[Rfam]
Shown here is a 56-nucleotide RNA sequence from Canis lupus, a member of the family "mir-193 microRNA precursor family". It is one of the family's seed sequences. The source organism's lineage runs through Eukaryota, Chordata, Amniota, Canis and Canis lupus.
RNA sequence: UGGGUCUUUGCGGGCGAGAUGAGGGUGUCGGUUCAACUGGCCUACAAAGUCCCAGU
Numbered sequence: 001u002g003g004g005u006c007u008u009u010g011c012g013g014g015c016g017a018g019a020u021g022a023g024g025g026u027g028u029c030g031g032u033u034c035a036a037c038u039g040g041c042c043u044a045c046a047a048a049g050u051c052c053c054a055g056u
Stems, first nucleotide, its partner, number of pairs: 001054004006049005012043004017038002020035002
The family's consensus secondary structure was predicted with RNAalifold. The literature on the family includes a 2010 paper in BMC Genomics by Linsen et al., "Small RNA expression and strain specificity in the rat".